Rfam assigns this 141-nucleotide RNA sequence from Upupa epops to the family "Small nucleolar RNA SNORA70". Rfam describes the family as follows. snoRNA U70 seems to be exclusive to mammals and is a member of the H/ACA class of snoRNA which contain H (ANANNA) and ACA box motifs. H/ACA box snoRNAs are involved in the conversion of uridines to pseudouridines (5-ribosyluracil) a constituent of structural RNAs (transfer, ribosomal, small nuclear, and small nucleolar). By type it is an H/ACA-box small nucleolar RNA. Lineage of the source: Eukaryota > Chordata > Amniota > Coelurosauria > Upupa. Pairs were carried over by alignment from the consensus structure, which was predicted with PFOLD.
RNA sequence: CCGCAGACCCUUAAGCCGGCUGUGGCCCCCUCCUCUGUGGGUCCCGGCGAGCACUGGCUGCGCACAUCAAUCCCCCCGGCUGUGUAGGGUGCCCCGGUGCUCUCCAUCCUGAGGGCACCCGAAGGGACCGAGGGUACAGUC
Numbered sequence: 001c002c003g004c005a006g007a008c009c010c011u012u013a014a015g016c017c018g019g020c021u022g023u024g025g026c027c028c029c030c031u032c033c034u035c036u037g038u039g040g041g042u043c044c045c046g047g048c049g050a051g052c053a054c055u056g057g058c059u060g061c062g063c064a065c066a067u068c069a070a071u072c073c074c075c076c077c078g079g080c081u082g083u084g085u086a087g088g089g090u091g092c093c094c095c096g097g098u099g100c101u102c103u104c105c106a107u108c109c110u111g112a113g114g115g116c117a118c119c120c121g122a123a124g125g126g127a128c129c130g131a132g133g134g135u136a137c138a139g140u141c
Base pairs, nucleotide, nucleotide: 003052004051019048020047021046022045025042026041027040028039078129079128090117091116092115093114094113